[Rfam]
RNA sequence: UGUAAAAGGCAGAGGUAGCUUCUAAAUAGAAGUUUGAGAAAUACUCUUAGAACCUGAUCUAGUUAAUACUAGCGUAGGAAGACCUAAACAUAAAAAA
Numbered sequence: 001u002g003u004a005a006a007a008g009g010c011a012g013a014g015g016u017a018g019c020u021u022c023u024a025a026a027u028a029g030a031a032g033u034u035u036g037a038g039a040a041a042u043a044c045u046c047u048u049a050g051a052a053c054c055u056g057a058u059c060u061a062g063u064u065a066a067u068a069c070u071a072g073c074g075u076a077g078g079a080a081g082a083c084c085u086a087a088a089c090a091u092a093a094a095a096a097a
Stems, first nucleotide, its partner, number of pairs: 006085001008083001010081001011047004016041001017034005053078004059072004
Dot-bracket structure: .....(.(.(((((.((((((........)))))......)..)))).....((((..((((......))))..))))..).).)............
Background: The record is a 97-nucleotide RNA from Spiroplasma apis, which matches "TPP riboswitch aptamer (THI element)" in Rfam. Vitamin B(1) in its active form thiamin pyrophosphate (TPP) is an essential coenzyme that is synthesised by coupling of pyrimidine and thiazole moieties in bacteria. Pairs were carried over by alignment from the consensus structure, which is taken from published work.